[Rfam]
This 112-nucleotide RNA sequence from Phytohabitans flavus belongs to the Rfam family "TPP riboswitch aptamer (THI element)". The base pairs follow the family's consensus structure, which is taken from published work.
RNA sequence: AACAACCGACAGGGGAGCGCAAAGCGCUGAGAGUGCGGGUGCCGCGAGGCGGCCGCAGACCCUCGAACCUGAUCUGGGUAAUGCCAGCGCAGGGAGUCGAUUCUCAGGCUCG
Numbered sequence: 001a002a003c004a005a006c007c008g009a010c011a012g013g014g015g016a017g018c019g020c021a022a023a024g025c026g027c028u029g030a031g032a033g034u035g036c037g038g039g040u041g042c043c044g045c046g047a048g049g050c051g052g053c054c055g056c057a058g059a060c061c062c063u064c065g066a067a068c069c070u071g072a073u074c075u076g077g078g079u080a081a082u083g084c085c086a087g088c089g090c091a092g093g094g095a096g097u098c099g100a101u102u103c104u105c106a107g108g109c110u111c112g
Stems, first nucleotide, its partner, number of pairs: 007099004011063004017027004034057005068093004074087004